[Rfam]
Shown here is an 84-nucleotide RNA from Caenorhabditis japonica, a member of the family "mir-259 microRNA precursor family". Rfam 15.1 lists 8 matches to the family in 8 species. A reference for the family is Ambros et al. (2003), "MicroRNAs and other tiny endogenous RNAs in C. elegans", Curr Biol. NCBI's taxonomy places the organism under Eukaryota, Eumetazoa, Protostomia, Rhabditina, Caenorhabditis. The match comes from Rfam's covariance-model search (69 bits).
RNA sequence: AUACGAGUAAAUCUCAUCCUAAUCUGGUCGCAAAAUUAUCAAAAUGGACAAUGCUACCGGUUCGGCUUUGGGAUUGACUCGUGU
Numbered sequence: 001a002u003a004c005g006a007g008u009a010a011a012u013c014u015c016a017u018c019c020u021a022a023u024c025u026g027g028u029c030g031c032a033a034a035a036u037u038a039u040c041a042a043a044a045u046g047g048a049c050a051a052u053g054c055u056a057c058c059g060g061u062u063c064g065g066c067u068u069u070g071g072g073a074u075u076g077a078c079u080c081g082u083g084u
Stems, first nucleotide, its partner, number of pairs: 003082006010075007018065002021062004026058003030054002